Small nucleolar RNA sn2903: a 91-nucleotide RNA sequence from Angiostrongylus costaricensis. It is annotated as a C/D-box small nucleolar RNA. Clan: SNORD60 clan. Gene Ontology terms of the family: RNA processing and nucleolus. The source organism's lineage runs through Eukaryota, Protostomia, Rhabditida, Metastrongylidae and Angiostrongylus.

[Rfam]
RNA sequence: GAGCAAAGAUGAAUGCGUGUGUUCGCUUCUGACACCUCUUAUGUUAGCAGUCAUUUCUGGGCUGCAGUGAUUCGGAUAAUGUUCUGAGCUC
Numbered sequence: 001g002a003g004c005a006a007a008g009a010u011g012a013a014u015g016c017g018u019g020u021g022u023u024c025g026c027u028u029c030u031g032a033c034a035c036c037u038c039u040u041a042u043g044u045u046a047g048c049a050g051u052c053a054u055u056u057c058u059g060g061g062c063u064g065c066a067g068u069g070a071u072u073c074g075g076a077u078a079a080u081g082u083u084c085u086g087a088g089c090u091c
Stems, first nucleotide, its partner, number of pairs: 001091004